[Rfam]
Annotation: Shown here is a 197-nucleotide sequence from Agrilus planipennis, a member of the family "R2 RNA element". This family represents the 3' UTR region of the R2 retrotransposable element. This family is known to interact with the R2-encoded reverse transcriptase in a reaction known as target primed reverse transcription (TPRT). It is annotated as a cis-regulatory element. Its family is annotated with regulation of reverse transcription in the Gene Ontology. For this family Rfam cites "Reverse transcription of R2Bm RNA is primed by a nick at the chromosomal target site: a mechanism for non-LTR retrotransposition" (Luan et al., Cell, 1993).

RNA sequence: AGACUGCCUAUUUAGUGGGUAUACCUAAGGUUGCCAUCUCUAAAAUACGGCUGAAGAGGACCCUAGUUGGUCCUAAAACGGCCUGAGGUAGAGGGGUUUUAGUCGGUAGGUCCGAGGACUCCUUCCUCGGGAAUCCGACACUACCCAGUCGUACGGACGGCUGGGUGUCUUCUGAAGAUUUCCCCUCUUCCACGAAA
Numbered sequence: 001a002g003a004c005u006g007c008c009u010a011u012u013u014a015g016u017g018g019g020u021a022u023a024c025c026u027a028a029g030g031u032u033g034c035c036a037u038c039u040c041u042a043a044a045a046u047a048c049g050g051c052u053g054a055a056g057a058g059g060a061c062c063c064u065a066g067u068u069g070g071u072c073c074u075a076a077a078a079c080g081g082c083c084u085g086a087g088g089u090a091g092a093g094g095g096g097u098u099u100u101a102g103u104c105g106g107u108a109g110g111u112c113c114g115a116g117g118a119c120u121c122c123u124u125c126c127u128c129g130g131g132a133a134u135c136c137g138a139c140a141c142u143a144c145c146c147a148g149u150c151g152u153a154c155g156g157a158c159g160g161c162u163g164g165g166u167g168u169c170u171u172c173u174g175a176a177g178a179u180u181u182c183c184c185c186u187c188u189u190c191c192a193c194g195a196a197a
Stems, first nucleotide, its partner, number of pairs: 037059004067196002070193002087191002090188002093184003102139005111131008141167001143166005